[Rfam]
RNA sequence: UGUCUUGCAAAUCGCUUCUCAAGCUCUAUAUUAGACCUGUCUCCUCGGGGACUAUGAACAUAAACGCGCUUGUAAUAAGCGGAUCGGACCCGGGGGCGGUACCCGGCGUCUCCACCAAACAUCCUUCAUUUGGGGAUCAUGGGGACGAAAUAGGAUCGACGAACGUCUAAAGAGGUUAGCUUUGUUUCGGCUGGGUGCCACCGUAUCGGCCCGAAAUGUACAAUUGCAAAUGACAAUCGUGCUCCAAUGGCGAUGGCCGCGUAAGCGACUGGAACUAUUGAAAUCUAAGUCCUUACGUUUAGCGACCUAAGGCGGGGUUCGCAGGCACCUGGCAACAGAAGCCUGCACU
Numbered sequence: 001u002g003u004c005u006u007g008c009a010a011a012u013c014g015c016u017u018c019u020c021a022a023g024c025u026c027u028a029u030a031u032u033a034g035a036c037c038u039g040u041c042u043c044c045u046c047g048g049g050g051a052c053u054a055u056g057a058a059c060a061u062a063a064a065c066g067c068g069c070u071u072g073u074a075a076u077a078a079g080c081g082g083a084u085c086g087g088a089c090c091c092g093g094g095g096g097c098g099g100u101a102c103c104c105g106g107c108g109u110c111u112c113c114a115c116c117a118a119a120c121a122u123c124c125u126u127c128a129u130u131u132g133g134g135g136a137u138c139a140u141g142g143g144g145a146c147g148a149a150a151u152a153g154g155a156u157c158g159a160c161g162a163a164c165g166u167c168u169a170a171a172g173a174g175g176u177u178a179g180c181u182u183u184g185u186u187u188c189g190g191c192u193g194g195g196u197g198c199c200a201c202c203g204u205a206u207c208g209g210c211c212c213g214a215a216a217u218g219u220a221c222a223a224u225u226g227c228a229a230a231u232g233a234c235a236a237u238c239g240u241g242c243u244c245c246a247a248u249g250g251c252g253a254u255g256g257c258c259g260c261g262u263a264a265g266c267g268a269c270u271g272g273a274a275c276u277a278u279u280g281a282a283a284u285c286u287a288a289g290u291c292c293u294u295a296c297g298u299u300u301a302g303c304g305a306c307c308u309a310a311g312g313c314g315g316g317g318u319u320c321g322c323a324g325g326c327a328c329c330u331g332g333c334a335a336c337a338g339a340a341g342c343c344u345g346c347a348c349u
Base pairs, nucleotide, nucleotide: 039052040051041050042049043048056187057186058185059184060183066180067179068176069175070174071173080165081164084162085161086160090106091105092104093103094102107147108146109145110144111143112142113141188203189202190201194212195211197210198209199208315330316329317328318327321346322345323344324343325342326341